RNA sequence: CUCUGGAGAGCGUCCGGACACAGGUUGUGAACGGGACCACCAAAGGGGAAAACCUAACACAGGUAAACUCUCAGGUACCAGGACAGAG
Numbered sequence: 001c002u003c004u005g006g007a008g009a010g011c012g013u014c015c016g017g018a019c020a021c022a023g024g025u026u027g028u029g030a031a032c033g034g035g036a037c038c039a040c041c042a043a044a045g046g047g048g049a050a051a052a053c054c055u056a057a058c059a060c061a062g063g064u065a066a067a068c069u070c071u072c073a074g075g076u077a078c079c080a081g082g083a084c085a086g087a088g
Base pairs, nucleotide, nucleotide: 001088002087003086004085005084012037013036014035015034039076040075041074043071046070047069048068053062